Rfam assigns this 159-nucleotide sequence from Podargus strigoides to the family "Small Cajal body specific RNA 1". Rfam describes the family as follows. scaRNAs are a specific class of small nuclear RNAs which localise to the Cajal bodies and guide the modification of RNA polymerase II transcribed spliceosomal RNAs U1, U2, U4, U5 and U12. ACA35 belong to the H/ACA box class of guide RNAs as it has the predicted hairpin-hinge-hairpin-tail structure, conserved H/ACA-box motifs and is found associated with GAR1. The literature on the family includes a 2002 paper in EMBO J by Darzacq et al., "Cajal body-specific small nuclear RNAs: a novel class of 2'-O-methylation and pseudouridylation guide RNAs". The source organism's lineage runs through Eukaryota, Deuterostomia, Archosauria, Dinosauria and Podargus.
RNA sequence: GAGCACUUGAUACUAACCGAGCCAUCCGUAUCCCAGGUCUUGGUCUGAGGUACACCUUGUGAUUGCUGGGUCUGAAAAGUGCAACAUUAAAACAAGCCAUGAAGUGUUUAAGCUCAGUGUACGAAGGAUGACACUGGGUUAUAACUCAGAGGCACAGAA
Numbered sequence: 001g002a003g004c005a006c007u008u009g010a011u012a013c014u015a016a017c018c019g020a021g022c023c024a025u026c027c028g029u030a031u032c033c034c035a036g037g038u039c040u041u042g043g044u045c046u047g048a049g050g051u052a053c054a055c056c057u058u059g060u061g062a063u064u065g066c067u068g069g070g071u072c073u074g075a076a077a078a079g080u081g082c083a084a085c086a087u088u089a090a091a092a093c094a095a096g097c098c099a100u101g102a103a104g105u106g107u108u109u110a111a112g113c114u115c116a117g118u119g120u121a122c123g124a125a126g127g128a129u130g131a132c133a134c135u136g137g138g139u140u141a142u143a144a145c146u147c148a149g150a151g152g153c154a155c156a157g158a159a
Stems, first nucleotide, its partner, number of pairs: 003082006016071003020067003024063003028053005033047001036045003096153003117132002122127001134149006